Shown here is a 98-nucleotide RNA sequence from Macleaya cordata, a member of the family "Small nucleolar RNA Z103". Rfam classes the family as a C/D-box small nucleolar RNA. Lineage of the source: Eukaryota > Viridiplantae > Streptophyta > Spermatophyta > Macleaya. A search with the family's covariance model found it, with a score of 58 bits.
[Rfam]
RNA sequence: AUGGAGGUGAUGAUCCUUUCCCCAAAUGAUCGACUUUGAUCAUACUGUGUGUUUUAUUUUCAAGAAAACCAGAUUCACAAUACCCAAUACUGGACCAU
Numbered sequence: 001a002u003g004g005a006g007g008u009g010a011u012g013a014u015c016c017u018u019u020c021c022c023c024a025a026a027u028g029a030u031c032g033a034c035u036u037u038g039a040u041c042a043u044a045c046u047g048u049g050u051g052u053u054u055u056a057u058u059u060u061c062a063a064g065a066a067a068a069c070c071a072g073a074u075u076c077a078c079a080a081u082a083c084c085c086a087a088u089a090c091u092g093g094a095c096c097a098u
Stems, first nucleotide, its partner, number of pairs: 001098004